Group II catalytic intron D1-D4-2: a 117-nucleotide sequence from Mycoavidus cysteinexigens. About the family: Group II introns are found in rRNA, tRNA and mRNA of organelles in fungi, plants and protists, and also in mRNA in bacteria. A reference for the family is Bonen and Vogel (2001), "The ins and outs of group II introns", Trends Genet. It scores 108 bits against the family's covariance model. Its family is annotated with Group II intron splicing in the Gene Ontology. Lineage of the source: Bacteria > Pseudomonadati > Betaproteobacteria > Burkholderiales > Mycoavidus. Rfam 15.1 lists 1,231 matches to the family in 625 species.
RNA sequence: GAGGGUAGGCCCCUCGAAGGCAGCUUACAGGAGCGGGCUUCAAAUUACCUCAAGCUGCGUAGAUAAAGAAUCUGCGUGGUGAGCGUUGAGGAAAAGGCAGAGAAGAAAUCUGUCAAA
Numbered sequence: 001g002a003g004g005g006u007a008g009g010c011c012c013c014u015c016g017a018a019g020g021c022a023g024c025u026u027a028c029a030g031g032a033g034c035g036g037g038c039u040u041c042a043a044a045u046u047a048c049c050u051c052a053a054g055c056u057g058c059g060u061a062g063a064u065a066a067a068g069a070a071u072c073u074g075c076g077u078g079g080u081g082a083g084c085g086u087u088g089a090g091g092a093a094a095a096g097g098c099a100g101a102g103a104a105g106a107a108a109u110c111u112g113u114c115a116a117a
Base pairs, nucleotide, nucleotide: 001015002014003013004012005011016041017040018039019038021036023034024033025032026031046117048091049090050089051088052087053086054080055079057077058076059075061073062072063071064070096114097113098112099111100110101109